[Rfam]
RNA: Small nucleolar RNA SNORA44
RNA sequence: CAGCUGUGCUCCAAGGGCUAUGACUGGUUGUGGGUGUGGCCAUGGACCUCCAACUGCAUGCAAGAGCACUCUGGAGGGACUGGCAGCUCAGGUCAGCACAACACCUGUAGCUGCCCCUUGCCUUUUCCAUAAUA
Number, nucleotide and partner (000 for none) at each position: 001c000002a000003g000004c000005u000006g000007u000008g000009c000010u000011c045012c044013a000014a000015g000016g041017g040018c039019u038020a037021u036022g035023a000024c000025u000026g000027g000028u000029u000030g000031u000032g000033g000034g000035u022036g021037u020038g019039g018040c017041c016042a000043u000044g012045g011046a000047c000048c000049u000050c000051c000052a000053a000054c000055u000056g000057c000058a000059u000060g000061c000062a000063a000064g000065a000066g000067c000068a000069c000070u000071c000072u000073g127074g126075a125076g124077g123078g122079a000080c000081u000082g000083g000084c000085a000086g114087c113088u000089c107090a106091g105092g104093u000094c000095a000096g000097c000098a000099c000100a000101a000102c000103a000104c092105c091106u090107g089108u000109a000110g000111c000112u000113g087114c086115c000116c000117c000118u000119u000120g000121c000122c078123u077124u076125u075126u074127c073128c000129a000130u000131a000132a000133u000134a000